[Rfam]
RNA: SAM riboswitch aptamer (S box leader)
RNA sequence: CUGCUAUCCAGAAAGACCGAGGGACUGGGCCCUGUGACGUCUUGGCAACCUGCUCUGAGUAGGUGCCAACUCCCGUUCUGCCAACGCGUUUGGCCGAAGAAGAUGACAG
Dot-bracket structure: (((.((((....(((((...(((..[[[[)))......)))))((((.((((((...))))))))))...(]]]](((.(((((.....))))).)))..))))).)))